[Rfam]
RNA sequence: AAAACCAACUUUGAUCUUAUCGUUCCUAAAAGAAUUCCGCGUGACAUUUUUUACAAAAAAGCUUAUAUUUUAUUUCGCACAUAGAAAAGUGAAUUAAAUCUACAACUUGUGGAAAAACCUGUUGAAAAAUGGUUAAAAAGUGGAUAACUCAUGGGGAUCAUGAUAAAAACAGGGUUUUUUGGCUUAUUUUCUGAGUAUUAAUACUGCAUCAAUAAAUUAUUAAAUGUAGUUUAAUAAUCAAUAAAACUUACUGAAACAACAAUG
Numbered sequence: 001a002a003a004a005c006c007a008a009c010u011u012u013g014a015u016c017u018u019a020u021c022g023u024u025c026c027u028a029a030a031a032g033a034a035u036u037c038c039g040c041g042u043g044a045c046a047u048u049u050u051u052u053a054c055a056a057a058a059a060a061g062c063u064u065a066u067a068u069u070u071u072a073u074u075u076c077g078c079a080c081a082u083a084g085a086a087a088a089g090u091g092a093a094u095u096a097a098a099u100c101u102a103c104a105a106c107u108u109g110u111g112g113a114a115a116a117a118c119c120u121g122u123u124g125a126a127a128a129a130u131g132g133u134u135a136a137a138a139a140g141u142g143g144a145u146a147a148c149u150c151a152u153g154g155g156g157a158u159c160a161u162g163a164u165a166a167a168a169a170c171a172g173g174g175u176u177u178u179u180u181g182g183c184u185u186a187u188u189u190u191c192u193g194a195g196u197a198u199u200a201a202u203a204c205u206g207c208a209u210c211a212a213u214a215a216a217u218u219a220u221u222a223a224a225u226g227u228a229g230u231u232u233a234a235u236a237a238u239c240a241a242u243a244a245a246a247c248u249u250a251c252u253g254a255a256a257c258a259a260c261a262a263u264g
Base pairs, nucleotide, nucleotide: 007176008175009174010173011172012171013170017166018165019164020163021162022158023157024156025155026154027153028152031149032148036144037143038142039141040140045131046130047129048128049127050126051125052124053122054121055120069098070097071096072095074093075092076091077090078089099113100112101111102110103109177256178255179254182251187245188244189243192240193239194238196236197235198234199233200232201231203230204229205228206227207226208225209224
A member of the RNA family "Cyanobacterial functional RNA 17" from Prochlorococcus marinus, 264 nucleotides long. The base pairs follow the family's consensus structure, which was predicted with mfold. NCBI's taxonomy places the organism under Bacteria, Cyanobacteriota, Prochlorococcaceae, Prochlorococcus, Prochlorococcus marinus subsp. pastoris. On this family, see Steglich et al., PLoS Genet 2008: "The challenge of regulation in a minimal photoautotroph: non-coding RNAs in Prochlorococcus". The sequence is in the family's curated seed alignment.